[Rfam]
RNA sequence: GUUGUGGAUAGAGGCGCGGGGCGAAUGAGUAGCCGUUCGAGGGGACACCCGGAGACGACGGUGAAAGGUCAACCCGCCGAAACGUUCGGACGGGUGCGUCCCUGCGUUGGGCACCGGCGAAAUACGUCGGUGACUCCCGGCGAAGCUUCGCUUCGUCGGAGGCGCUAUCGGCGGA
Numbered sequence: 001g002u003u004g005u006g007g008a009u010a011g012a013g014g015c016g017c018g019g020g021g022c023g024a025a026u027g028a029g030u031a032g033c034c035g036u037u038c039g040a041g042g043g044g045a046c047a048c049c050c051g052g053a054g055a056c057g058a059c060g061g062u063g064a065a066a067g068g069u070c071a072a073c074c075c076g077c078c079g080a081a082a083c084g085u086u087c088g089g090a091c092g093g094g095u096g097c098g099u100c101c102c103u104g105c106g107u108u109g110g111g112c113a114c115c116g117g118c119g120a121a122a123u124a125c126g127u128c129g130g131u132g133a134c135u136c137c138c139g140g141c142g143a144a145g146c147u148u149c150g151c152u153u154c155g156u157c158g159g160a161g162g163c164g165c166u167a168u169c170g171g172c173g174g175a
Stems, first nucleotide, its partner, number of pairs: 007169005016077005023070002032062006039056001081108005088101005109135002112132008137159007
The family of this 175-nucleotide RNA sequence from Sutterella megalosphaeroides is "Lysine riboswitch aptamer". NCBI's taxonomy places the organism under Bacteria, Pseudomonadati, Betaproteobacteria, Burkholderiales, Sutterella.